The record is a 46-nucleotide RNA from Fimbriiglobus ruber, which matches "Acido-Lenti-1 RNA" in Rfam. A search with the family's covariance model found it, with a score of 42 bits.
RNA sequence: CUCAGGGUCCACACCCUGGGCUAUUUUCUGCCGCCUCUUCGAGGCU
Numbered sequence: 001c002u003c004a005g006g007g008u009c010c011a012c013a014c015c016c017u018g019g020g021c022u023a024u025u026u027u028c029u030g031c032c033g034c035c036u037c038u039u040c041g042a043g044g045c046u
Stems, first nucleotide, its partner, number of pairs: 001020008033045005
Dot-bracket structure: ((((((((....))))))))............(((((...))))).